[Rfam]
RNA sequence: UUGGCCGGCGGCCCACGGCCGUCAGUCAUUUUGCAGGCGGCCCCCCCGGCCACACAAAAACCGCCCUCUCAGAGGGCGGUUUUUAGCCGAAAACCGCCCUCUGAGAGGGCGGU
Dot-bracket structure: .(((((((.((......((((((.((......)).))))))..)))))))))............((((((.(((((((((((((....))))))))))))).)))))).....
This 113-nucleotide RNA from Oryza meyeriana belongs to the Rfam family "Small Cajal body specific RNA 11". For this family Rfam cites "Cajal body-specific small nuclear RNAs: a novel class of 2'-O-methylation and pseudouridylation guide RNAs" (Darzacq et al., EMBO J, 2002). The family's consensus secondary structure was predicted with RNAalifold. A search with the family's covariance model found it, with a score of 43 bits. By type it is a small Cajal body RNA. Gene Ontology terms of the family: RNA processing, nucleolus and Cajal body. About the family: scaRNAs are a specific class of small nuclear RNAs which localise to the Cajal bodies and guide the modification of RNA polymerase II transcribed spliceosomal RNAs U1, U2, U4, U5 and U12. ACA57 belongs to the H/ACA box class of guide RNAs as it has the predicted hairpin-hinge-hairpin-tail structure, conserved H/ACA-box motifs and is found associated with GAR1.